[Rfam]
RNA sequence: UAGGUAAACCAGACAAUAGCUUGAGUAAAAUCAAGAGGAAAGUCCGGGCUGCUGUGAAGUAUGGUUCCAUUUAAAUAAUGGCUGGGGUAACCUAAGGGAUAGUGCAACAGAGAAUAGACAGCCGAUUUUUUCGGUGAUGGUGAAACGGUGGGGUAAGAGCCUACCAGACUUUUGAGUAAUCUUAAGUGCUUUGUAAACCCAACCUGCAGCAAGAAGACUAGGUAUUUACUUCACAUUUUUGGUCUUCGCAAGACUACUAAAGUAAUUUAGUAGCUAGAUAAAUUAUUGUCUUAAAAACAAAACGCGGCUUAUUGGUUUACCUACAAA
Numbered sequence: 001u002a003g004g005u006a007a008a009c010c011a012g013a014c015a016a017u018a019g020c021u022u023g024a025g026u027a028a029a030a031u032c033a034a035g036a037g038g039a040a041a042g043u044c045c046g047g048g049c050u051g052c053u054g055u056g057a058a059g060u061a062u063g064g065u066u067c068c069a070u071u072u073a074a075a076u077a078a079u080g081g082c083u084g085g086g087g088u089a090a091c092c093u094a095a096g097g098g099a100u101a102g103u104g105c106a107a108c109a110g111a112g113a114a115u116a117g118a119c120a121g122c123c124g125a126u127u128u129u130u131u132c133g134g135u136g137a138u139g140g141u142g143a144a145a146c147g148g149u150g151g152g153g154u155a156a157g158a159g160c161c162u163a164c165c166a167g168a169c170u171u172u173u174g175a176g177u178a179a180u181c182u183u184a185a186g187u188g189c190u191u192u193g194u195a196a197a198c199c200c201a202a203c204c205u206g207c208a209g210c211a212a213g214a215a216g217a218c219u220a221g222g223u224a225u226u227u228a229c230u231u232c233a234c235a236u237u238u239u240u241g242g243u244c245u246u247c248g249c250a251a252g253a254c255u256a257c258u259a260a261a262g263u264a265a266u267u268u269a270g271u272a273g274c275u276a277g278a279u280a281a282a283u284u285a286u287u288g289u290c291u292u293a294a295a296a297a298c299a300a301a302a303c304g305c306g307g308c309u310u311a312u313u314g315g316u317u318u319a320c321c322u323a324c325a326a327a
Base pairs, nucleotide, nucleotide: 001323002322003321004320005319006318007317008316009315010314011312012290013289014288015287016286017285018284020035021034022033023032024031040310041309042308044307045306046305048303049209050208051207052206058231059230063204064203065202066201067081068080069079070078071077082096083094084093085092086091097200098199102198103197104194105193106192119139120138121135122134123133124132125131147165148164149163150162151161152160167189168187169186170185171184174181175180213247214246215245216244222239224236225235227233254273255272256271257270258269259268260267261266
RNA: Bacterial RNase P class A
Organism: Arcobacter caeni